[Rfam]
UnaL2 LINE 3' element: a 54-nucleotide sequence from Salmo trutta. Taxonomically the source falls in Salmo (Eukaryota, Bilateria, Neopterygii, Protacanthopterygii). Pairs were carried over by alignment from the consensus structure, which is taken from published work. The match comes from Rfam's covariance-model search (62 bits). The eel long interspersed element (LINE) UnaL2 and its partner short interspersed element (SINE) share a conserved 3' tail containing a stem-loop that is critical for their retrotransposition. Presumably, the first step of retrotransposition is the recognition of their 3' tails by UnaL2-encoded reverse transcriptase. The solution structure of a 17-nucleotide RNA derived from the 3' tail of UnaL2 was determined by NMR. Rfam classes the family as a cis-regulatory element.
RNA sequence: ACCAUCACUAAUUGUAAGUCGCUCUGGAUAAGAGCAUCUGCUAAAUUACUAAAA
Numbered sequence: 001a002c003c004a005u006c007a008c009u010a011a012u013u014g015u016a017a018g019u020c021g022c023u024c025u026g027g028a029u030a031a032g033a034g035c036a037u038c039u040g041c042u043a044a045a046u047u048a049c050u051a052a053a054a
Stems, first nucleotide, its partner, number of pairs: 013043001014041003021035005